Rfam assigns this 95-nucleotide RNA sequence from Anopheles gambiae to the family "mir-286 microRNA precursor family". Taxonomically the source falls in gambiae species complex (Eukaryota, Protostomia, Ecdysozoa, Culicidae). On this family, see Li et al., BMC Genomics 2009: "Direct sequencing and expression analysis of a large number of miRNAs in Aedes aegypti and a multispecies survey of novel mosquito miRNAs". The sequence is in the family's curated seed alignment.
RNA sequence: GUCAUAAUUUGGGGCGAUUGUCGGACUAGUCGCUGUCGCAGUCAUUCGGUUUCACCUUAGUGACUAGACCGAACACUCGCGUCCUAAACGAACGA
Number, nucleotide and partner (000 for none) at each position: 001g000002u000003c000004a000005u000006a000007a000008u000009u000010u000011g085012g084013g083014g082015c081016g080017a000018u000019u075020g074021u073022c071023g070024g069025a000026c000027u066028a065029g064030u063031c062032g000033c060034u059035g000036u000037c000038g000039c000040a000041g000042u000043c000044a000045u000046u000047c000048g000049g000050u000051u000052u000053c000054a000055c000056c000057u000058u000059a034060g033061u000062g031063a030064c029065u028066a027067g000068a000069c024070c023071g022072a000073a021074c020075a019076c000077u000078c000079g000080c016081g015082u014083c013084c012085u011086a000087a000088a000089c000090g000091a000092a000093c000094g000095a000